SAH (S-adenosyl-L-homocysteine) riboswitch aptamer: a 115-nucleotide RNA from Paucibacter sp. KBW04. For this family Rfam cites "Riboswitches that sense S-adenosylhomocysteine and activate genes involved in coenzyme recycling" (Wang et al., Mol Cell, 2008). The match comes from Rfam's covariance-model search (61 bits).
RNA sequence: CACUCCGAGGAGCGUUGCAACCUCAUGUCGCACAGACAUGAGGCCAGGCUCGGAAUCGAAUCCAGUGCCGGCAUUCAAGCGCCGCCCAGAUUCAUUGCAACCGCGCUCACCCGCU
Numbered sequence: 001c002a003c004u005c006c007g008a009g010g011a012g013c014g015u016u017g018c019a020a021c022c023u024c025a026u027g028u029c030g031c032a033c034a035g036a037c038a039u040g041a042g043g044c045c046a047g048g049c050u051c052g053g054a055a056u057c058g059a060a061u062c063c064a065g066u067g068c069c070g071g072c073a074u075u076c077a078a079g080c081g082c083c084g085c086c087c088a089g090a091u092u093c094a095u096u097g098c099a100a101c102c103g104c105g106c107u108c109a110c111c112c113g114c115u
Stems, first nucleotide, its partner, number of pairs: 002056001004054005021043009
Dot-bracket structure: .(.(((((............(((((((((.....)))))))))......))))).)...........................................................